[Rfam]
RNA sequence: AGCAAAAUGAUGAAACUAUAUAUUUUUUAUAUCUGAAUUUGAUGUAGAACCUCAUAUCAUGCCUUCAAAGUUCUCUGAUUGCU
Number, nucleotide and partner (000 for none) at each position: 001a083002g082003c081004a080005a079006a000007a000008u000009g000010a000011u000012g000013a000014a000015a000016c000017u000018a000019u000020a000021u000022a000023u000024u000025u000026u000027u000028u000029a000030u000031a000032u000033c000034u000035g000036a000037a000038u000039u000040u000041g000042a000043u000044g000045u000046a000047g000048a000049a000050c000051c000052u000053c000054a000055u000056a000057u000058c000059a000060u000061g000062c000063c000064u000065u000066c000067a000068a000069a000070g000071u000072u000073c000074u000075c000076u000077g000078a000079u005080u004081g003082c002083u001
RNA: Small nucleolar RNA R160
Organism: Prunus armeniaca